The family of this 326-nucleotide RNA sequence from Stutzerimonas nosocomialis is "Pseudomonas sRNA CrcZ".
[Rfam]
RNA sequence: ACAACAAAAAUAAUAAGCGGCAAAAACCAAACAAGAACGAUACGUAUCGGCUCUCGCACAAUAACGACAAGACGGCAGAGACGAAGCUAACCGAUUCUUUUGGAGAGGAAACGCCAGCGGGUAUGACCCGGCGGCCAGUCGAGAAUAAAAAACUGCACGAGCAGCUCGGUGACUGGCGGUAGAUGGCGCUUCAGCGACCAAAAGCAUCCGUUAUCUACUGGGCCGAGAUGGCCUCCACCACUUGGUGGGCAGAAAAACAAGAGCGUUCAAACUCAAGGGAGCUUCGGCUCCCUUGAGUCGUUCUGGUGUCCGGGAUUUGAGUUGCC
Number, nucleotide and partner (000 for none) at each position: 001a000002c000003a000004a000005c000006a000007a000008a000009a000010a000011u000012a000013a000014u000015a000016a000017g000018c000019g000020g000021c000022a000023a000024a000025a000026a000027c000028c000029a000030a000031a000032c000033a000034a000035g000036a000037a000038c000039g000040a000041u000042a000043c000044g000045u000046a000047u000048c083049g082050g000051c080052u079053c078054u077055c000056g000057c000058a000059c000060a000061a000062u000063a000064a000065c000066g000067a000068c000069a000070a000071g000072a000073c000074g000075g000076c000077a054078g053079a052080g051081a000082c049083g048084a000085a000086g000087c000088u000089a000090a000091c000092c000093g000094a000095u000096u000097c000098u203099u202100u201101u200102g199103g000104a000105g000106a000107g000108g000109a000110a000111a000112c196113g195114c194115c000116a000117g000118c000119g000120g000121g000122u000123a000124u000125g000126a000127c000128c000129c000130g000131g000132c179133g000134g177135c176136c175137a174138g173139u000140c000141g000142a000143g000144a000145a000146u000147a000148a000149a000150a000151a000152a000153c164154u163155g162156c161157a000158c000159g000160a000161g156162c155163a154164g153165c000166u000167c000168g000169g000170u000171g000172a000173c138174u137175g136176g135177c134178g000179g132180u000181a000182g000183a000184u000185g000186g000187c000188g000189c000190u000191u000192c000193a000194g114195c113196g112197a000198c000199c102200a101201a100202a099203a098204g000205c000206a000207u000208c000209c000210g000211u000212u000213a000214u000215c000216u000217a000218c000219u000220g000221g233222g232223c231224c230225g229226a000227g000228a000229u225230g224231g223232c222233c221234u000235c000236c000237a000238c000239c308240a307241c306242u305243u000244g303245g000246u000247g000248g000249g000250c000251a000252g000253a000254a000255a000256a000257a000258c000259a000260a000261g000262a000263g301264c300265g299266u000267u000268c000269a000270a000271a000272c000273u000274c297275a294276a293277g292278g291279g290280a289281g288282c287283u000284u000285c000286g000287g282288c281289u280290c279291c278292c277293u276294u275295g000296a000297g274298u000299c265300g264301u263302u000303c244304u000305g242306g241307u240308g239309u000310c000311c000312g000313g000314g000315a000316u000317u000318u000319g000320a000321g000322u000323u000324g000325c000326c000
The literature on the family includes a 2007 paper in Mol Microbiol by Moreno et al., "The Pseudomonas putida Crc global regulator is an RNA binding protein that inhibits translation of the AlkS transcriptional regulator". The family's consensus secondary structure was predicted with WAR. Its family is annotated with carbon catabolite repression of transcription in the Gene Ontology.